[Rfam]
RNA sequence: GGUCUUUGAGGUGGUAAAGUUCGUUGCUACCACGCGCCUUCGGGCUAAAAGAGAUGCAGGAGAGGCGACGCCUGCCAAAGACC
Number, nucleotide and partner (000 for none) at each position: 001g083002g082003u081004c080005u079006u078007u077008g076009a000010g000011g033012u032013g031014g030015u029016a000017a000018a000019g000020u000021u000022c000023g069024u068025u067026g066027c065028u000029a015030c014031c013032a012033c011034g000035c051036g045037c044038c043039u000040u000041c000042g000043g038044g037045c036046u000047a000048a000049a000050a000051g035052a000053g000054a000055u000056g075057c074058a073059g072060g071061a000062g000063a000064g000065g027066c026067g025068a024069c023070g000071c060072c059073u058074g057075c056076c008077a007078a006079a005080g004081a003082c002083c001

The family of this 83-nucleotide RNA sequence is "skipping-rope RNA".
By type it is a small RNA.